[Rfam]
RNA sequence: GUCCGUUGCAUGUCAAUCGGACACGACGGUAUGGAGAACAGGGCGAUUUUUCCGAUUUCCCGUUCUGGCCAACGCAAAGGCAGACGAGCUUCUCGUCCCGUCUGCAAC
Numbered sequence: 001g002u003c004c005g006u007u008g009c010a011u012g013u014c015a016a017u018c019g020g021a022c023a024c025g026a027c028g029g030u031a032u033g034g035a036g037a038a039c040a041g042g043g044c045g046a047u048u049u050u051u052c053c054g055a056u057u058u059c060c061c062g063u064u065c066u067g068g069c070c071a072a073c074g075c076a077a078a079g080g081c082a083g084a085c086g087a088g089c090u091u092c093u094c095g096u097c098c099c100g101u102c103u104g105c106a107a108c
Base pairs, nucleotide, nucleotide: 006107007106008105009104011023012022013021014020025102026101027100028099029098033092034091035090036089039067040066041065042064043063044062045061068081069080070079
A member of the RNA family "Rhizobiales sRNA Atu_At1" from Pelagivirga sediminicola, 108 nucleotides long. For this family Rfam cites "Deep sequencing uncovers numerous small RNAs on all four replicons of the plant pathogen Agrobacterium tumefaciens" (Wilms et al., RNA Biol, 2012). NCBI's taxonomy places the organism under Bacteria, Pseudomonadota, Alphaproteobacteria, Rhodobacterales, Pelagivirga.